[Rfam]
RNA sequence: ACUGUCCUUGUCUUGGGGUGCGAGCUUGCUCAAGGAGCGUUUAGCGAGAGCAAGACUGCUGACACCCUACAACUACAUGUUGUAGACACGCAUCGCCUCCCUCGGGAGGUCUGGGUGCAAUUUAUGGGGGC
Numbered sequence: 001a002c003u004g005u006c007c008u009u010g011u012c013u014u015g016g017g018g019u020g021c022g023a024g025c026u027u028g029c030u031c032a033a034g035g036a037g038c039g040u041u042u043a044g045c046g047a048g049a050g051c052a053a054g055a056c057u058g059c060u061g062a063c064a065c066c067c068u069a070c071a072a073c074u075a076c077a078u079g080u081u082g083u084a085g086a087c088a089c090g091c092a093u094c095g096c097c098u099c100c101c102u103c104g105g106g107a108g109g110u111c112u113g114g115g116u117g118c119a120a121u122u123u124a125u126g127g128g129g130g131c
Stems, first nucleotide, its partner, number of pairs: 006018004020059003025054007037045002090118005096109005